[Rfam]
RNA sequence: UGGGCAGUAUCAAUAGAACUGCACCUCUUGUAAGCGUAUCAUUAAUUAAAUAGUCUGCCUUGAUCAACUAAUGACAGGGACGGAGAA
Numbered sequence: 001u002g003g004g005c006a007g008u009a010u011c012a013a014u015a016g017a018a019c020u021g022c023a024c025c026u027c028u029u030g031u032a033a034g035c036g037u038a039u040c041a042u043u044a045a046u047u048a049a050a051u052a053g054u055c056u057g058c059c060u061u062g063a064u065c066a067a068c069u070a071a072u073g074a075c076a077g078g079g080a081c082g083g084a085g086a087a
Stems, first nucleotide, its partner, number of pairs: 002025002004022005010017002055083003058079005064074003
Shown here is an 87-nucleotide RNA sequence from Psychrobacillus insolitus, a member of the family "pan motif". Pairs were carried over by alignment from the consensus structure, which is taken from published work. It scores 68 bits against the family's covariance model. Taxonomically the source falls in Psychrobacillus (Bacteria, Bacilli, Caryophanales, Bacillaceae).